[Rfam]
RNA sequence: UCAUACCGCAGGCCGCGCUCACCUCCUCCCGAGCAACGCCAGCGAGGAAGCGUCUGGCUCUUCUCCUCCCAGAGUAAGCAGACGCUGAUCAUAGAGACGGUCAUGCCCACCUCCUCCCGGGCAUGACCGUUUUU
Numbered sequence: 001u002c003a004u005a006c007c008g009c010a011g012g013c014c015g016c017g018c019u020c021a022c023c024u025c026c027u028c029c030c031g032a033g034c035a036a037c038g039c040c041a042g043c044g045a046g047g048a049a050g051c052g053u054c055u056g057g058c059u060c061u062u063c064u065c066c067u068c069c070c071a072g073a074g075u076a077a078g079c080a081g082a083c084g085c086u087g088a089u090c091a092u093a094g095a096g097a098c099g100g101u102c103a104u105g106c107c108c109a110c111c112u113c114c115u116c117c118c119g120g121g122c123a124u125g126a127c128c129g130u131u132u133u134u
Stems, first nucleotide, its partner, number of pairs: 007044003011040003015037001017034002049086008098129011
RNA: Alphaproteobacterial ar14
Organism: Yoonia tamlensis